Shown here is a 103-nucleotide RNA from Vibrio breoganii, a member of the family "gltS RNA". It is annotated as a cis-regulatory element. Pairs were carried over by alignment from the consensus structure, which is taken from published work.
RNA sequence: AAUGACCAAGGAAUGUUUUUCUCGCAAACUUUUCAGCGAGAGACGGAAUGGAAGCAGGCUAAUGCACACAAUUAGCCCUUAAGAAGACAAUUAUAAGGAAUGG
Numbered sequence: 001a002a003u004g005a006c007c008a009a010g011g012a013a014u015g016u017u018u019u020u021c022u023c024g025c026a027a028a029c030u031u032u033u034c035a036g037c038g039a040g041a042g043a044c045g046g047a048a049u050g051g052a053a054g055c056a057g058g059c060u061a062a063u064g065c066a067c068a069c070a071a072u073u074a075g076c077c078c079u080u081a082a083g084a085a086g087a088c089a090a091u092u093a094u095a096a097g098g099a100a101u102g103g
Stems, first nucleotide, its partner, number of pairs: 020041006057077007